The family of this 81-nucleotide RNA from Erwinia sp. Ejp617 is "Peptidase-S11 RNA". The family's consensus secondary structure is taken from published work. The sequence is in the family's curated seed alignment. Rfam classes the family as a cis-regulatory element.
RNA sequence: CUUAUUAUGCCGGAGCCAGCCCCCGUACUCCUGACGGGAAGCGGCGUGUGGCCCCCACACCUGAAUAACCAGCCGUUAAGU
Numbered sequence: 001c002u003u004a005u006u007a008u009g010c011c012g013g014a015g016c017c018a019g020c021c022c023c024c025g026u027a028c029u030c031c032u033g034a035c036g037g038g039a040a041g042c043g044g045c046g047u048g049u050g051g052c053c054c055c056c057a058c059a060c061c062u063g064a065a066u067a068a069c070c071a072g073c074c075g076u077u078a079a080g081u
Base pairs, nucleotide, nucleotide: 015045016044017043019042020041022038023037024036025035026034046060047059048058049057050056051055